[Rfam]
RNA: c-sis internal ribosome entry site (IRES)
RNA sequence: CGGAGCAGCCGCAGCUUGCAGCCCGCAGAGGACAGCCAAAGCCGUAGGAGGACUGACCGACGGAUUCCCACCGCGUCCACCUGUCGGCCAGGCCCGGCCGAGCGCGCACGCCUUGCGCGGAGCAGCAGUGCCGGCCACCACCGGGGGCCCUGCGCCAGAGCGCACACGCUCCGGCCGCCCCACCAGGCUGGGGCGGGAAUUUGCACCUCUCCCAGUCUGGGUGCUUGGGCCGCCGCUGCAAAGACAACUUUGGAAAAAGUUUUUUGGAGGAAGCCUGGGCUUAGAGGUGCCCAGCCUUGUCCUUUCUGAUUUGGAGGACCAUUCCAGAAAAUGUUGCAAAAAAGCUAAGCCGGCGGGCAGAGGAAAACGCCUUAAGCCAGUGAGUGAAGACGAACCCAAAGGCUGCCGUGUUCCUUUUCCUCUUGGAGGUUGGAGUCCCCUGGGCGCCCCCACACGGCUAGACGCCUUGGCUGGUUCGCGACGCAGCCCCCUGGCCGUGGAUGCUCGCUCGGGCUCGAGAUCCGCACAGGUAGCGGCCGCGGACCCUGGUCCCUCGCCCAGGCCCUCCAUAGUCCCCCAACGACGGAGUCCGGGC
Numbered sequence: 001c002g003g004a005g006c007a008g009c010c011g012c013a014g015c016u017u018g019c020a021g022c023c024c025g026c027a028g029a030g031g032a033c034a035g036c037c038a039a040a041g042c043c044g045u046a047g048g049a050g051g052a053c054u055g056a057c058c059g060a061c062g063g064a065u066u067c068c069c070a071c072c073g074c075g076u077c078c079a080c081c082u083g084u085c086g087g088c089c090a091g092g093c094c095c096g097g098c099c100g101a102g103c104g105c106g107c108a109c110g111c112c113u114u115g116c117g118c119g120g121a122g123c124a125g126c127a128g129u130g131c132c133g134g135c136c137a138c139c140a141c142c143g144g145g146g147g148c149c150c151u152g153c154g155c156c157a158g159a160g161c162g163c164a165c166a167c168g169c170u171c172c173g174g175c176c177g178c179c180c181c182a183c184c185a186g187g188c189u190g191g192g193g194c195g196g197g198a199a200u201u202u203g204c205a206c207c208u209c210u211c212c213c214a215g216u217c218u219g220g221g222u223g224c225u226u227g228g229g230c231c232g233c234c235g236c237u238g239c240a241a242a243g244a245c246a247a248c249u250u251u252g253g254a255a256a257a258a259g260u261u262u263u264u265u266g267g268a269g270g271a272a273g274c275c276u277g278g279g280c281u282u283a284g285a286g287g288u289g290c291c292c293a294g295c296c297u298u299g300u301c302c303u304u305u306c307u308g309a310u311u312u313g314g315a316g317g318a319c320c321a322u323u324c325c326a327g328a329a330a331a332u333g334u335u336g337c338a339a340a341a342a343a344g345c346u347a348a349g350c351c352g353g354c355g356g357g358c359a360g361a362g363g364a365a366a367a368c369g370c371c372u373u374a375a376g377c378c379a380g381u382g383a384g385u386g387a388a389g390a391c392g393a394a395c396c397c398a399a400a401g402g403c404u405g406c407c408g409u410g411u412u413c414c415u416u417u418u419c420c421u422c423u424u425g426g427a428g429g430u431u432g433g434a435g436u437c438c439c440c441u442g443g444g445c446g447c448c449c450c451c452a453c454a455c456g457g458c459u460a461g462a463c464g465c466c467u468u469g470g471c472u473g474g475u476u477c478g479c480g481a482c483g484c485a486g487c488c489c490c491c492u493g494g495c496c497g498u499g500g501a502u503g504c505u506c507g508c509u510c511g512g513g514c515u516c517g518a519g520a521u522c523c524g525c526a527c528a529g530g531u532a533g534c535g536g537c538c539g540c541g542g543a544c545c546c547u548g549g550u551c552c553c554u555c556g557c558c559c560a561g562g563c564c565c566u567c568c569a570u571a572g573u574c575c576c577c578c579a580a581c582g583a584c585g586g587a588g589u590c591c592g593g594g595c
Stems, first nucleotide, its partner, number of pairs: 002245001005239005011233002014230005020225003025212001027210005033162001037158001041155002044148002047099002050095002053092001055088001057087007067075001069073001103143002106131004111120002165203002168200001170198003174194003179187002247260005267570001269568003273563008286509004294504002297500004306494003314491001316489002319486001336345002349381002352378003359372002362368001384484003389479001391478005397473002401468002403461002405458007412434003416429005435445004511552004517546001519544001521543004529538003575594003580589002